This 259-nucleotide sequence from Australozyma monospora belongs to the Rfam family "Fungal signal recognition particle RNA". The family is grouped with related families in Rfam's "SRP clan". A search with the family's covariance model found it, with a score of 114 bits. The organism belongs to Australozyma, within Eukaryota. The family's consensus secondary structure is taken from published work. Its family is annotated with signal recognition particle, plasma membrane targeting, signal recognition particle, endoplasmic reticulum targeting and SRP-dependent cotranslational protein targeting to membrane, signal sequence recognition in the Gene Ontology. Rfam classes the family as a non-coding RNA gene.

[Rfam]
RNA sequence: UUGCUGUGAUGGCGUUUGGCAGAAAAGCGCUACUUGCGCCGACCUUUAAGUGCACUACAACACAAGAUGUCCGGUUCGAUCCCUGCGGUCAAGGAGCAAAAUAUUUGAGUAGUCGAUAAUUUUCUCCUUAGCAAUGAGUAGCACCACCACUGGAGGGAAGUGAUUCAGCACAGUAGGCUACCCGUGGUGAGGCGAAGCGGAUGGCACCUUAGUUGGGUUUGGUGUAGUUAGUGGAAAGCCUAGCGUUGUAACUCCAGUU
Numbered sequence: 001u002u003g004c005u006g007u008g009a010u011g012g013c014g015u016u017u018g019g020c021a022g023a024a025a026a027g028c029g030c031u032a033c034u035u036g037c038g039c040c041g042a043c044c045u046u047u048a049a050g051u052g053c054a055c056u057a058c059a060a061c062a063c064a065a066g067a068u069g070u071c072c073g074g075u076u077c078g079a080u081c082c083c084u085g086c087g088g089u090c091a092a093g094g095a096g097c098a099a100a101a102u103a104u105u106u107g108a109g110u111a112g113u114c115g116a117u118a119a120u121u122u123u124c125u126c127c128u129u130a131g132c133a134a135u136g137a138g139u140a141g142c143a144c145c146a147c148c149a150c151u152g153g154a155g156g157g158a159a160g161u162g163a164u165u166c167a168g169c170a171c172a173g174u175a176g177g178c179u180a181c182c183c184g185u186g187g188u189g190a191g192g193c194g195a196a197g198c199g200g201a202u203g204g205c206a207c208c209u210u211a212g213u214u215g216g217g218u219u220u221g222g223u224g225u226a227g228u229u230a231g232u233g234g235a236a237a238g239c240c241u242a243g244c245g246u247u248g249u250a251a252c253u254c255c256a257g258u259u
Stems, first nucleotide, its partner, number of pairs: 002014003017257001019255001021253002026247007043234002046231004051226006058215004064210003068206003071200003075196004080190002083187006090131001091129006098122003102118004107114002132136001138181005144176001149174004157166003